A member of the RNA family "Fungal signal recognition particle RNA" from Botrytis fragariae, 283 nucleotides long. On this family, see Batey et al., Science 2000: "Crystal structure of the ribonucleoprotein core of the signal recognition particle". NCBI's taxonomy places the organism under Eukaryota, Opisthokonta, Pezizomycotina, leotiomyceta, Botrytis. The family's consensus secondary structure is taken from published work. The family is grouped with related families in Rfam's "SRP clan". Gene Ontology terms of the family: signal recognition particle, plasma membrane targeting, SRP-dependent cotranslational protein targeting to membrane, signal sequence recognition and signal recognition particle, endoplasmic reticulum targeting.

RNA sequence: UGACUGUAACGGUCAUAAGGUUAAGGCGAGCUCACGUUCCCUCUUUCUUCUCUCCAAGUUCUUCAAUCUAACGAUUGGAGGCCACCAACAGUGCCCAGUCCGAACACCACGGUGACAAUCCACUCGUGUAGGAAACUCACGAUGCUGCGGUUGUCCUAAGCAAUGAAGAUGAUUUCUUGAGGGAGGUUUCACUCUGCAGAGAGCUCUUCACCGUGGGGUGGCGGUGCAGGAUUACAUUCGUUGUGCGGUUUGGAGGGUGGAAGAGAUUUGGGUCUCAACUUUU
Numbered sequence: 001u002g003a004c005u006g007u008a009a010c011g012g013u014c015a016u017a018a019g020g021u022u023a024a025g026g027c028g029a030g031c032u033c034a035c036g037u038u039c040c041c042u043c044u045u046u047c048u049u050c051u052c053u054c055c056a057a058g059u060u061c062u063u064c065a066a067u068c069u070a071a072c073g074a075u076u077g078g079a080g081g082c083c084a085c086c087a088a089c090a091g092u093g094c095c096c097a098g099u100c101c102g103a104a105c106a107c108c109a110c111g112g113u114g115a116c117a118a119u120c121c122a123c124u125c126g127u128g129u130a131g132g133a134a135a136c137u138c139a140c141g142a143u144g145c146u147g148c149g150g151u152u153g154u155c156c157u158a159a160g161c162a163a164u165g166a167a168g169a170u171g172a173u174u175u176c177u178u179g180a181g182g183g184a185g186g187u188u189u190c191a192c193u194c195u196g197c198a199g200a201g202a203g204c205u206c207u208u209c210a211c212c213g214u215g216g217g218g219u220g221g222c223g224g225u226g227c228a229g230g231a232u233u234a235c236a237u238u239c240g241u242u243g244u245g246c247g248g249u250u251u252g253g254a255g256g257g258u259g260g261a262a263g264a265g266a267u268u269u270g271g272g273u274c275u276c277a278a279c280u281u282u283u
Stems, first nucleotide, its partner, number of pairs: 001015004018281005024275002031272004036268001038266002045262004050257009062079007083247001085245001086243004091237003095230002098227002100224003104219002107216006114155001116153005121147002124142005130137002156160001164210006174203005183194003